Shown here is a 100-nucleotide RNA, a member of the family "Plastid-rps12 3UTR RNA". The family's consensus secondary structure was predicted with LocARNA. Rfam describes the family as follows. Plastid rpl20 is a non-coding RNA (ncRNA) recognised in plastids. It was found in the three prime untranslated region (3UTR) of rps12 gene, its 3UTR location sugest a role in transcript maduration. The literature on the family includes a 2023 paper in Plant Commun by Richter et al., "Retrograde signaling in plants: A critical review focusing on the GUN pathway and beyond". Rfam's curators put it in the seed alignment.
RNA sequence: GUUUCGAUUGGCGUAAACCCAAUCGCCUCGAUGUGAGUGAGAUCCGAAGAAAUUCCCCAUUGGUAGCAAAUGGUUAUCCAUUAAGCGGAGGAAAUGAUAU
Numbered sequence: 001g002u003u004u005c006g007a008u009u010g011g012c013g014u015a016a017a018c019c020c021a022a023u024c025g026c027c028u029c030g031a032u033g034u035g036a037g038u039g040a041g042a043u044c045c046g047a048a049g050a051a052a053u054u055c056c057c058c059a060u061u062g063g064u065a066g067c068a069a070a071u072g073g074u075u076a077u078c079c080a081u082u083a084a085g086c087g088g089a090g091g092a093a094a095u096g097a098u099a100u
Stems, first nucleotide, its partner, number of pairs: 008022004055090001057088002059081002062078006